[Rfam]
RNA sequence: GAGUUAUGGUGCCCGGCCACCAGGUUAACCGCCUCAGGCGGGGAGCCGAAGGGAAACCAAGUCCUAAAAGGGCGACCAGUCGGACGCCAUAGACGCGAAACCAGGUGAUCUACCCAUGGGCAGGUUGAAGCGACCCUAACCGGUCGUGGAGGACCGAACCCACCAGUGUUGAAAAACUGGGGGAGGACCUGUGGGGAGGAGUGAAAGUCUUAUCAAACCUGGAGAUAGCUCGUU
Numbered sequence: 001g002a003g004u005u006a007u008g009g010u011g012c013c014c015g016g017c018c019a020c021c022a023g024g025u026u027a028a029c030c031g032c033c034u035c036a037g038g039c040g041g042g043g044a045g046c047c048g049a050a051g052g053g054a055a056a057c058c059a060a061g062u063c064c065u066a067a068a069a070g071g072g073c074g075a076c077c078a079g080u081c082g083g084a085c086g087c088c089a090u091a092g093a094c095g096c097g098a099a100a101c102c103a104g105g106u107g108a109u110c111u112a113c114c115c116a117u118g119g120g121c122a123g124g125u126u127g128a129a130g131c132g133a134c135c136c137u138a139a140c141c142g143g144u145c146g147u148g149g150a151g152g153a154c155c156g157a158a159c160c161c162a163c164c165a166g167u168g169u170u171g172a173a174a175a176a177c178u179g180g181g182g183g184a185g186g187a188c189c190u191g192u193g194g195g196g197a198g199g200a201g202u203g204a205a206a207g208u209c210u211u212a213u214c215a216a217a218c219c220u221g222g223a224g225a226u227a228g229c230u231c232g233u234u
Stems, first nucleotide, its partner, number of pairs: 005091007013083005023047004029041003051058002061073004094232002097229001101222006110198002113195008121186001123155004130147006159183003163180005200210002